Background: A member of the RNA family "SAH (S-adenosyl-L-homocysteine) riboswitch aptamer" from Limnohabitans sp. JirII-31, 94 nucleotides long. The source organism's lineage runs through Bacteria, Pseudomonadati, Pseudomonadota, Comamonadaceae and Limnohabitans.
RNA sequence: UUCCCCAAGGAGCGUUGCAGCUUCAUCCCACCGUGUCUGGUGCGUGCGUGAAGUCAGGCUUGGGGCCGUAUCUUUGCAACGACGCUCACCUGAA
Number, nucleotide and partner (000 for none) at each position: 001u000002u000003c065004c064005c063006c062007a061008a060009g000010g000011a000012g000013c000014g000015u000016u000017g000018c000019a000020g000021c053022u052023u051024c050025a049026u048027c000028c000029c000030a000031c000032c000033g000034u000035g000036u000037c000038u000039g000040g000041u000042g000043c000044g000045u000046g000047c000048g026049u025050g024051a023052a022053g021054u000055c000056a000057g000058g000059c000060u008061u007062g006063g005064g004065g003066c000067c000068g000069u000070a000071u000072c000073u000074u000075u000076g000077c000078a000079a000080c000081g000082a000083c000084g000085c000086u000087c000088a000089c000090c000091u000092g000093a000094a000